[Rfam]
Rfam assigns this 102-nucleotide RNA from Neobacillus mesonae to the family "S10-Clostridia ribosomal protein leader". For this family Rfam cites "Discovery of 20 novel ribosomal leader candidates in bacteria and archaea" (Eckert and Weinberg, BMC Microbiol, 2020).
RNA sequence: UGACUGCGAUGAUGUGAGAGGUUGCUGACACACCCGGCCGCUUUGCCAUGGCGCUGUGUUAGGGAAAUUCUCACGGAGAAUGUCUAUUUUAAAAAUAGGCGA
Numbered sequence: 001u002g003a004c005u006g007c008g009a010u011g012a013u014g015u016g017a018g019a020g021g022u023u024g025c026u027g028a029c030a031c032a033c034c035c036g037g038c039c040g041c042u043u044u045g046c047c048a049u050g051g052c053g054c055u056g057u058g059u060u061a062g063g064g065a066a067a068u069u070c071u072c073a074c075g076g077a078g079a080a081u082g083u084c085u086a087u088u089u090u091a092a093a094a095a096u097a098g099g100c101g102a
Base pairs, nucleotide, nucleotide: 014074015073016072018070019069020068025062026061027060028059029058030057031056032055083102084101088099089098090097

Rfam classes the family as a cis-regulatory leader. A search with the family's covariance model found it, with a score of 38 bits. The organism belongs to Neobacillus, within Bacteria.